[Rfam]
RNA sequence: GGCUGGUCCGAGUGCAGGAGUGUUUACGAUGAAUUGAUCACAGGCAGUUACAGAGCUCAUUGUUCCUUCUCCACUCCCUCUGCUUUGCUUGACUAGCUUUAA
Numbered sequence: 001g002g003c004u005g006g007u008c009c010g011a012g013u014g015c016a017g018g019a020g021u022g023u024u025u026a027c028g029a030u031g032a033a034u035u036g037a038u039c040a041c042a043g044g045c046a047g048u049u050a051c052a053g054a055g056c057u058c059a060u061u062g063u064u065c066c067u068u069c070u071c072c073a074c075u076c077c078c079u080c081u082g083c084u085u086u087g088c089u090u091g092a093c094u095a096g097c098u099u100u101a102a
Base pairs, nucleotide, nucleotide: 001098002097003096004095005094006093007092008091010090011089014086016081017080018079020077022076028064029063030062032060
Dot-bracket structure: ((((((((.((..(.(((.(.(.....(((.(...........................).)))...........)).)))....)..))))))))))....
Y RNA: a 102-nucleotide sequence from Neogale vison.
The organism belongs to Neogale, within Eukaryota.
The literature on the family includes a 2000 paper in Nucleic Acids Res by Teunissen et al., "Conserved features of Y RNAs: a comparison of experimentally derived secondary structures".